[Rfam]
Nucleotides: 082
Stems, first nucleotide, its partner, number of pairs: 001081007010026003028044005058074005
Number, partner (000 for none) and nucleotide at each position: 001081g002080c003079g004078g005077g006076u007075g008000u009000g010026g011025u012024g013000g014000a015000a016000u017000u018000g019000g020000c021000a022000g023000a024012c025011a026010c027000a028044c029043u030042u031041g032040g033000u034000u035000u036000a037000g038000g039000u040032c041031c042030a043029a044028g045000c046000g047000c048000c049000u050000c051000a052000c053000g054000g055000c056000a057000u058074g059073g060072g061071g062070g063000u064000u065000c066000a067000a068000g069000u070062c071061c072060c073059u074058c075007c076006a077005c078004c079003c080002g081001c082000a